[Rfam]
RNA sequence: CUCUUAUAUUGAGAGGCGGAGGGACUGGCCCGAUGAAGCUUCAGCAACCAUUCAGAAUGAAAAGGUGCUAAAUCCAGCAAGGUGGAGACACUUUGAAAGAUAAGGG
Numbered sequence: 001c002u003c004u005u006a007u008a009u010u011g012a013g014a015g016g017c018g019g020a021g022g023g024a025c026u027g028g029c030c031c032g033a034u035g036a037a038g039c040u041u042c043a044g045c046a047a048c049c050a051u052u053c054a055g056a057a058u059g060a061a062a063a064g065g066u067g068c069u070a071a072a073u074c075c076a077g078c079a080a081g082g083u084g085g086a087g088a089c090a091c092u093u094u095g096a097a098a099g100a101u102a103a104g105g106g
Stems, first nucleotide, its partner, number of pairs: 001106007013042005021031003025077004043069004048065002051061004073098001078095006
RNA: SAM riboswitch aptamer (S box leader)
Organism: Alkalicoccobacillus porphyridii